[Rfam]
RNA sequence: UAGGCCCUGCCUUGCACGAAGUCUCAAGUGCCUACUUGGGAUACGCCUCCGGCAUAGUGCGGGCGGGGCUAC
Numbered sequence: 001u002a003g004g005c006c007c008u009g010c011c012u013u014g015c016a017c018g019a020a021g022u023c024u025c026a027a028g029u030g031c032c033u034a035c036u037u038g039g040g041a042u043a044c045g046c047c048u049c050c051g052g053c054a055u056a057g058u059g060c061g062g063g064c065g066g067g068g069c070u071a072c
Stems, first nucleotide, its partner, number of pairs: 003070010014060004021042009

A member of the RNA family "DUF3800-VIII RNA" from Rhodospira trueperi, 72 nucleotides long. The family's RNA type in Rfam is small RNA. The organism belongs to Rhodospira, within Bacteria. From the family's description: Bacteroidetes, Cyanobacteria, Firmicutes, Planctomycetes (1 example), Proteobacteria, Tenericutes (1 example). It scores 48 bits against the family's covariance model.